[Rfam]
RNA sequence: GGUCGUAUAGUGUAGCGGUUAUCACAUCGGAUUCUGAUUAGUCACUGGAAGUUCCGAUAACCCUGGUUCGAAUCCUGGUAUGACCU
Number, nucleotide and partner (000 for none) at each position: 001g085002g084003u083004c082005g081006u080007a079008u000009a000010g025011u024012g023013u000014a000015g000016c000017g000018g000019u000020u000021a000022u000023c012024a011025c010026a000027u057028c056029g055030g054031a053032u000033u000034c000035u000036g000037a000038u000039u000040a000041g000042u000043c000044a000045c000046u000047g000048g000049a000050a000051g000052u000053u031054c030055c029056g028057a027058u000059a000060a000061c000062c078063c077064u000065g075066g074067u000068u000069c000070g000071a000072a000073u000074c066075c065076u000077g063078g062079u007080a006081u005082g004083a003084c002085c001086u000
Annotation: Rfam assigns this 86-nucleotide RNA from Trichophyton rubrum to the family "tRNA". It is annotated as a transfer RNA. From the family's description: Transfer RNA (tRNA) molecules are approximately 80 nucleotides in length. Rfam links the family to the GO term triplet codon-amino acid adaptor activity.